Shown here is a 405-nucleotide sequence from Endozoicomonas montiporae, a member of the family "Bacterial RNase P class A".
RNA sequence: CGAGUUGGCCGGGCAGUCGCUGCAUGGAGAUUACUGGUAUUUAUCAGUGUAUCUGUGUGGAGGAAAGUCCGGGCUCCGAAGGGUAGGGCGCCAGAUAACGUCUGGGGGGCGAAAGCCUACGGAAAGUGCAGCAGAGAGUAGACCGCCUAAGUCUUCAGUCGAAGACCGGUAAGGGUGAAAGGGUGCGGUAAGAGCGCACCGCAUGGCUGGCAACAGUUCAUGGCACGGUAAACCCCGCCUGGAGCAAGACCAAAUAGGGACCCUACAGGUGUGUACCCGCACUGGGUCCGGGUAGGUUGCUUGAGGUGUCUGGUGACAGGCAUCCCAGAUGAAUGACUGCUCAGGCUGGACAGAAUUUUAUUCUGGCUGGCCGGACAGAACCCGGCUUACAGGCCAACUCGCUUC
Numbered sequence: 001c002g003a004g005u006u007g008g009c010c011g012g013g014c015a016g017u018c019g020c021u022g023c024a025u026g027g028a029g030a031u032u033a034c035u036g037g038u039a040u041u042u043a044u045c046a047g048u049g050u051a052u053c054u055g056u057g058u059g060g061a062g063g064a065a066a067g068u069c070c071g072g073g074c075u076c077c078g079a080a081g082g083g084u085a086g087g088g089c090g091c092c093a094g095a096u097a098a099c100g101u102c103u104g105g106g107g108g109g110c111g112a113a114a115g116c117c118u119a120c121g122g123a124a125a126g127u128g129c130a131g132c133a134g135a136g137a138g139u140a141g142a143c144c145g146c147c148u149a150a151g152u153c154u155u156c157a158g159u160c161g162a163a164g165a166c167c168g169g170u171a172a173g174g175g176u177g178a179a180a181g182g183g184u185g186c187g188g189u190a191a192g193a194g195c196g197c198a199c200c201g202c203a204u205g206g207c208u209g210g211c212a213a214c215a216g217u218u219c220a221u222g223g224c225a226c227g228g229u230a231a232a233c234c235c236c237g238c239c240u241g242g243a244g245c246a247a248g249a250c251c252a253a254a255u256a257g258g259g260a261c262c263c264u265a266c267a268g269g270u271g272u273g274u275a276c277c278c279g280c281a282c283u284g285g286g287u288c289c290g291g292g293u294a295g296g297u298u299g300c301u302u303g304a305g306g307u308g309u310c311u312g313g314u315g316a317c318a319g320g321c322a323u324c325c326c327a328g329a330u331g332a333a334u335g336a337c338u339g340c341u342c343a344g345g346c347u348g349g350a351c352a353g354a355a356u357u358u359u360a361u362u363c364u365g366g367c368u369g370g371c372c373g374g375a376c377a378g379a380a381c382c383c384g385g386c387u388u389a390c391a392g393g394c395c396a397a398c399u400c401g402c403u404u405c
Stems, first nucleotide, its partner, number of pairs: 001401010011390001012341007020060009065388003069385005074244004081277002084275001086240005091105005106120001107118004121235002126233002128229002143174002145170003151166006182200006201224001202222005207216003248298004258289006269282005305324008
Dot-bracket structure: ((((((((((((((((((.(((((((((.......................)))))))))....[[[.[[[[[((((...[[.[.((((((((((.....)))))(((((....)))).)((...((((.............(((((...((((((....)))))).)))..)).......((((((.......))))))(((((((((....))).))))).)...))..)))))))))))))...((((......((((((.....(((((.]]]))))).)))))).....))))......((((((((....))))))))..........))))))).......................................]]]]]]]].).))))))))))....
The organism belongs to Endozoicomonas, within Bacteria. Pairs were carried over by alignment from the consensus structure, which is taken from published work. Gene Ontology terms of the family: tRNA processing, ribonuclease P activity and dimeric ribonuclease P complex. By type it is a ribozyme.